RNA sequence: CAGUUAAAAAGCUCGUAGUUGGAUUUCUGUUUUGAGCGUCCGGUCGGCUCCUUUGGAGUGUGUUACUAGGAUGUUUGAGACAUUUUUUGUGAGUAUGUUCUUCUGCCAUUCAGUUGGUGGUUGAAUGGACUUGCAUCGUUUACUGUGAAAAAAUUAGAGUGUUUAAAGCAGGCGUUUGCUCAUUGAAUACAUUAGCAUGGAAUAAUAAGAUACGACCUUGGUGGUCUAUUUUGUUGGUUUGCACACCAGGGUAAUGAUUAAUAGGGACAGUUGGGGGUAUUCAUAUUUCAGCGUCAGAGGUGAAAUUCUUGGAUCGCUGAAAGAUGAGCUUAGGCGAAAGCAUUUACCAAGGAUGUUUUCAUUAAUCAAGAACGAAAGUUAGGGGAUCGAAGAUGAUUAGAUACCAUCGUAGUCUUAACCAUAAACUAUGCCGACUCGGGAUUGGCAGUCGUUUUUUAAAUGACCUUGUCAGCACCGUAUGAGAAAUCAAAGUCUUUGGGUUCCGGGGGGAGUAUGGUCGCAAGGCUGAAACUUAAAGGAAU
Numbered sequence: 001c002a003g004u005u006a007a008a009a010a011g012c013u014c015g016u017a018g019u020u021g022g023a024u025u026u027c028u029g030u031u032u033u034g035a036g037c038g039u040c041c042g043g044u045c046g047g048c049u050c051c052u053u054u055g056g057a058g059u060g061u062g063u064u065a066c067u068a069g070g071a072u073g074u075u076u077g078a079g080a081c082a083u084u085u086u087u088u089g090u091g092a093g094u095a096u097g098u099u100c101u102u103c104u105g106c107c108a109u110u111c112a113g114u115u116g117g118u119g120g121u122u123g124a125a126u127g128g129a130c131u132u133g134c135a136u137c138g139u140u141u142a143c144u145g146u147g148a149a150a151a152a153a154u155u156a157g158a159g160u161g162u163u164u165a166a167a168g169c170a171g172g173c174g175u176u177u178g179c180u181c182a183u184u185g186a187a188u189a190c191a192u193u194a195g196c197a198u199g200g201a202a203u204a205a206u207a208a209g210a211u212a213c214g215a216c217c218u219u220g221g222u223g224g225u226c227u228a229u230u231u232u233g234u235u236g237g238u239u240u241g242c243a244c245a246c247c248a249g250g251g252u253a254a255u256g257a258u259u260a261a262u263a264g265g266g267a268c269a270g271u272u273g274g275g276g277g278u279a280u281u282c283a284u285a286u287u288u289c290a291g292c293g294u295c296a297g298a299g300g301u302g303a304a305a306u307u308c309u310u311g312g313a314u315c316g317c318u319g320a321a322a323g324a325u326g327a328g329c330u331u332a333g334g335c336g337a338a339a340g341c342a343u344u345u346a347c348c349a350a351g352g353a354u355g356u357u358u359u360c361a362u363u364a365a366u367c368a369a370g371a372a373c374g375a376a377a378g379u380u381a382g383g384g385g386a387u388c389g390a391a392g393a394u395g396a397u398u399a400g401a402u403a404c405c406a407u408c409g410u411a412g413u414c415u416u417a418a419c420c421a422u423a424a425a426c427u428a429u430g431c432c433g434a435c436u437c438g439g440g441a442u443u444g445g446c447a448g449u450c451g452u453u454u455u456u457u458a459a460a461u462g463a464c465c466u467u468g469u470c471a472g473c474a475c476c477g478u479a480u481g482a483g484a485a486a487u488c489a490a491a492g493u494c495u496u497u498g499g500g501u502u503c504c505g506g507g508g509g510g511a512g513u514a515u516g517g518u519c520g521c522a523a524g525g526c527u528g529a530a531a532c533u534u535a536a537a538g539g540a541a542u
Stems, first nucleotide, its partner, number of pairs: 001505001003503001009502001011373001013371002018366003264360004268355002271352002276348004282326002286322008297308003331342001334341002378419006388412001392408004430501003433494003437477003442472007451464003481488002507534003516527004

The record is a 542-nucleotide part of an RNA from Pythium oligandrum, which matches "Eukaryotic small subunit ribosomal RNA" in Rfam.
It scores 1764 bits against the family's covariance model.